[Rfam]
RNA: RAGATH-18 RNA
RNA sequence: ACUAUGGAGAGUACAAGAAACUAUGAGUAGAUACGAAGUAUUGAAAGUAUACUCGUUGAAGUAGUAA
Numbered sequence: 001a002c003u004a005u006g007g008a009g010a011g012u013a014c015a016a017g018a019a020a021c022u023a024u025g026a027g028u029a030g031a032u033a034c035g036a037a038g039u040a041u042u043g044a045a046a047g048u049a050u051a052c053u054c055g056u057u058g059a060a061g062u063a064g065u066a067a
Stems, first nucleotide, its partner, number of pairs: 001065005009054005022049003030042003